[Rfam]
RNA sequence: UGGAGAUGGCCAGGAUGGUGUAAGUCAGAAUGUCUGAACCGGGCGGAAGUUUUGCUGAUGAACCCUUUAUGGCUCUGAGGCUUCUCUGGUG
Numbered sequence: 001u002g003g004a005g006a007u008g009g010c011c012a013g014g015a016u017g018g019u020g021u022a023a024g025u026c027a028g029a030a031u032g033u034c035u036g037a038a039c040c041g042g043g044c045g046g047a048a049g050u051u052u053u054g055c056u057g058a059u060g061a062a063c064c065c066u067u068u069a070u071g072g073c074u075c076u077g078a079g080g081c082u083u084c085u086c087u088g089g090u091g
Stems, first nucleotide, its partner, number of pairs: 004085003008081001010079001
Shown here is a 91-nucleotide RNA sequence from Chelydra serpentina, a member of the family "Small nucleolar RNA SNORD91 family". By type it is a C/D-box small nucleolar RNA. The organism belongs to Chelydra, within Eukaryota. The pairing is the family consensus, mapped onto this sequence.